This 116-nucleotide sequence from Brachypodium distachyon belongs to the Rfam family "MIR5070 microRNA precursor family". Rfam 15.1 lists 266 matches to the family in 8 species. Pairs were carried over by alignment from the consensus structure, which was predicted with RNAalifold. Its Rfam clan is "MIR2863 microRNA precursor clan". Rfam links the family to the GO terms miRNA-mediated post-transcriptional gene silencing and RISC complex. It scores 108 bits against the family's covariance model.
RNA sequence: CAGGAUACCCUUUGACCCUUCUUAGUUCAACCAAAUGAACUAAAAAAUCUAAAUGACACAAUUUUUUGAAAAACUAGUUCAUUUGUUUGAACUAAGAAGGAUCAAAGGAUACCAUG
Numbered sequence: 001c002a003g004g005a006u007a008c009c010c011u012u013u014g015a016c017c018c019u020u021c022u023u024a025g026u027u028c029a030a031c032c033a034a035a036u037g038a039a040c041u042a043a044a045a046a047a048u049c050u051a052a053a054u055g056a057c058a059c060a061a062u063u064u065u066u067u068g069a070a071a072a073a074c075u076a077g078u079u080c081a082u083u084u085g086u087u088u089g090a091a092c093u094a095a096g097a098a099g100g101a102u103c104a105a106a107g108g109a110u111a112c113c114a115u116g
Base pairs, nucleotide, nucleotide: 002115004113006111007110009108010107011106012105013104014103015102017100018099019098020097021096022095023094024093025092026091027090028089029088030087032085033084034083035082036081037080038079039078040077041076042075